[Rfam]
RNA: Archaeal large subunit ribosomal RNA, nucleotides 543 to 639
Nucleotides: 097
Stems, first nucleotide, its partner, number of pairs: 001079010015068002019062006029053001034047005083096003
Number, partner (000 for none) and nucleotide at each position: 001079g002078a003077c004076u005075g006074g007073g008072c009071a010070u011000a012000g013000a014000a015068g016067g017000u018000c019062c020061c021060u022059c023058g024057a025000u026000a027000a028000a029053c030000g031000a032000c033000c034047u035046a036045u037044c038043c039000g040000c041000g042000a043038g044037g045036a046035u047034a048000c049000a050000g051000u052000a053029g054000g055000a056000c057024u058023c059022g060021a061020g062019g063000g064000a065000a066000g067016c068015c069000g070010g071009u072008g073007u074006u075005c076004a077003g078002u079001c080000g081000u082000a083096c084095g085094u086000u087000u088000u089000g090000a091000a092000a093000a094085a095084c096083g097000a